The family of this 49-nucleotide sequence from Streptomyces sp. NRRL F-4474 is "L31-Actinobacteria ribosomal protein leader".
The sequence is in the family's curated seed alignment.
Rfam classes the family as a cis-regulatory leader.
Nucleotides: 049
Base pairs, nucleotide, nucleotide: 003049004048005047007045008044009043010042015039016038017037018036020034022033023032
Number, partner (000 for none) and nucleotide at each position: 001000u002000c003049g004048g005047c006000c007045c008044c009043g010042g011000u012000u013000c014000a015039c016038g017037c018036a019000a020034g021000u022033a023032g024000c025000a026000a027000u028000u029000c030000g031000g032023c033022u034020c035000c036018u037017g038016c039015g040000a041000c042010c043009c044008g045007g046000c047005g048004c049003c